[Rfam]
RNA sequence: AUGAAAGUGAUGAUUAUUUGUCCAAAUCAUGAAAACUGAAACAACUCAGCAAAUUAUAUCUCUAUAUUACAUAGAGACACCAAACCAAAUAUAUUUGAUCCAU
Number, nucleotide and partner (000 for none) at each position: 001a103002u102003g101004a000005a099006a000007g000008u000009g000010a000011u000012g000013a000014u000015u000016a000017u000018u000019u000020g000021u000022c000023c000024a000025a000026a000027u000028c000029a000030u000031g000032a000033a000034a000035a000036c000037u000038g000039a000040a000041a000042c000043a000044a000045c000046u000047c000048a000049g000050c000051a000052a000053a000054u000055u000056a000057u000058a000059u000060c000061u000062c000063u000064a000065u000066a000067u000068u000069a000070c000071a000072u000073a000074g000075a000076g000077a000078c000079a000080c000081c000082a000083a000084a000085c000086c000087a000088a000089a000090u000091a000092u000093a000094u000095u000096u000097g000098a000099u005100c000101c003102a002103u001
Rfam assigns this 103-nucleotide RNA from Malus baccata to the family "Small nucleolar RNA Z103". For this family Rfam cites "The high diversity of snoRNAs in plants: identification and comparative study of 120 snoRNA genes from Oryza sativa" (Chen et al., Nucleic Acids Res, 2003). Lineage of the source: Eukaryota > Euphyllophyta > eudicotyledons > Amygdaloideae > Malus.